Shown here is a 78-nucleotide RNA sequence from Apis mellifera, a member of the family "mir-3478 microRNA precursor family". The family's consensus secondary structure was predicted with RNAalifold.
RNA sequence: AGGCGGACAUUGGAUGAAUCCUACCCGGUGAGGUUUUUUUUUUCCAACCACACCGGACGAGAUUUCAUCCGACAGCAG
Numbered sequence: 001a002g003g004c005g006g007a008c009a010u011u012g013g014a015u016g017a018a019u020c021c022u023a024c025c026c027g028g029u030g031a032g033g034u035u036u037u038u039u040u041u042u043u044c045c046a047a048c049c050a051c052a053c054c055g056g057a058c059g060a061g062a063u064u065u066c067a068u069c070c071g072a073c074a075g076c077a078g
Base pairs, nucleotide, nucleotide: 003076004075006073010072011071012070013069014068015067016066017064018063019062020061022059025056026055027054028053029052032049033048

Taxonomically the source falls in Apis (Eukaryota, Allotriocarida, Anthophila, Apinae).
Its family is annotated with miRNA-mediated post-transcriptional gene silencing and RISC complex in the Gene Ontology.
Rfam 15.1 lists 14 matches to the family in 14 species.